[Rfam]
RNA sequence: GUUUACCUUUGUGUGGAUGGUGUUCAGCACCAAGGACAGGUGUGUUUGUGUGGAUGGUGUUCAGCACCAAGGACAGGUGUGUUUGCUU
Numbered sequence: 001g002u003u004u005a006c007c008u009u010u011g012u013g014u015g016g017a018u019g020g021u022g023u024u025c026a027g028c029a030c031c032a033a034g035g036a037c038a039g040g041u042g043u044g045u046u047u048g049u050g051u052g053g054a055u056g057g058u059g060u061u062c063a064g065c066a067c068c069a070a071g072g073a074c075a076g077g078u079g080u081g082u083u084u085g086c087u088u
Base pairs, nucleotide, nucleotide: 004079005078006077007076008075010073018069019068020067021066022065023064024063026061027060028059029058030057031056032055034049036047
mir-2060 microRNA precursor family: an 88-nucleotide sequence from Branchiostoma belcheri. Rfam 15.1 lists 3,696 matches to the family in 4 species. NCBI's taxonomy places the organism under Eukaryota, Cephalochordata, Leptocardii, Branchiostomatidae, Branchiostoma. It scores 83 bits against the family's covariance model.